The family of this 405-nucleotide RNA sequence from Cryptosporangium aurantiacum is "Bacterial RNase P class A". The family's RNA type in Rfam is ribozyme. The match comes from Rfam's covariance-model search (282 bits). About the family: Ribonuclease P (RNase P) is a ubiquitous endoribonuclease, found in archaea, bacteria and eukarya as well as chloroplasts and mitochondria. Its best characterised activity is the generation of mature 5'-ends of tRNAs by cleaving the 5'-leader elements of precursor-tRNAs. Cellular RNase Ps are ribonucleoproteins.
RNA sequence: CGAGCCGGCCGGGCGGUCGCGUCAGUACCCAGUGGUGCUGCCGAGGAACGUCCGGGCUUCACAGGGCAGGGUGGUUGUUAACGGCAACCCGGGGUGACCCGCGGGAAAGUGCCACAGAAAACAGACCGCCGGGCGCGGCUUCGCGACCGGUAAGGGUGAAACGGUGGUGUAAGAGACCACCAGCGCCCCGGGUGACCGGGGCGGCUCGGUAAACCCCACCCGGAGCAAGGUCAAGAGGGGCGACCUCGGUCGCCCUGCGUGAGCGUUCGAGGGCUGCCCGCCCGAGCUCACGGGUAGACCGCUAGAGCCUGUCGGCAACGGCAGGCCGAGAUGGAUGGCCGCCGGCCAGGGCAGUGCCGCGAGGCGCCCUGGCAACAGGACCCGGCGUACAGGCCGACUCGUCCG
Numbered sequence: 001c002g003a004g005c006c007g008g009c010c011g012g013g014c015g016g017u018c019g020c021g022u023c024a025g026u027a028c029c030c031a032g033u034g035g036u037g038c039u040g041c042c043g044a045g046g047a048a049c050g051u052c053c054g055g056g057c058u059u060c061a062c063a064g065g066g067c068a069g070g071g072u073g074g075u076u077g078u079u080a081a082c083g084g085c086a087a088c089c090c091g092g093g094g095u096g097a098c099c100c101g102c103g104g105g106a107a108a109g110u111g112c113c114a115c116a117g118a119a120a121a122c123a124g125a126c127c128g129c130c131g132g133g134c135g136c137g138g139c140u141u142c143g144c145g146a147c148c149g150g151u152a153a154g155g156g157u158g159a160a161a162c163g164g165u166g167g168u169g170u171a172a173g174a175g176a177c178c179a180c181c182a183g184c185g186c187c188c189c190g191g192g193u194g195a196c197c198g199g200g201g202c203g204g205c206u207c208g209g210u211a212a213a214c215c216c217c218a219c220c221c222g223g224a225g226c227a228a229g230g231u232c233a234a235g236a237g238g239g240g241c242g243a244c245c246u247c248g249g250u251c252g253c254c255c256u257g258c259g260u261g262a263g264c265g266u267u268c269g270a271g272g273g274c275u276g277c278c279c280g281c282c283c284g285a286g287c288u289c290a291c292g293g294g295u296a297g298a299c300c301g302c303u304a305g306a307g308c309c310u311g312u313c314g315g316c317a318a319c320g321g322c323a324g325g326c327c328g329a330g331a332u333g334g335a336u337g338g339c340c341g342c343c344g345g346c347c348a349g350g351g352c353a354g355u356g357c358c359g360c361g362a363g364g365c366g367c368c369c370u371g372g373c374a375a376c377a378g379g380a381c382c383c384g385g386c387g388u389a390c391a392g393g394c395c396g397a398c399u400c401g402u403c404c405g
Base pairs, nucleotide, nucleotide: 001401002400003399004398006396007395008394009393010392011390012343013342014341015340016339017338018337020043021042023040024039025038026037027036028035048388049387050386052385053384054383055382056381057225058224059223060222064279065278066277067276069221070220071219072218073217074088075087076086077085078084089103090101091100092099093098104216105215109214110213111210112209113208126155127154128151129150130149131148132147134145135144136143163181164180165179166178167177168176183205184203185202186201187200188199189198190197191196229300230299231298232297259291260290261289262288263287264286271283272282273281274280307326308325309324310323311322312321313320314319